Group II catalytic intron D1-D4-1: an 82-nucleotide RNA sequence from Marinobacterium aestuarii. It scores 66 bits against the family's covariance model. A reference for the family is Bonen and Vogel (2001), "The ins and outs of group II introns", Trends Genet.
RNA sequence: CUACGGCCGUCGCGAGGCGGCCGGAUGGGAUAGCAGAUGUCAGCAGACGCCAUAGUAGGUCUGUUACCGCAGACUGAAGGGC
Numbered sequence: 001c002u003a004c005g006g007c008c009g010u011c012g013c014g015a016g017g018c019g020g021c022c023g024g025a026u027g028g029g030a031u032a033g034c035a036g037a038u039g040u041c042a043g044c045a046g047a048c049g050c051c052a053u054a055g056u057a058g059g060u061c062u063g064u065u066a067c068c069g070c071a072g073a074c075u076g077a078a079g080g081g082c
Base pairs, nucleotide, nucleotide: 001027004023005022006021007020008019009018010017011016039048040047041046049082050081051080058075059074060073061072062071063070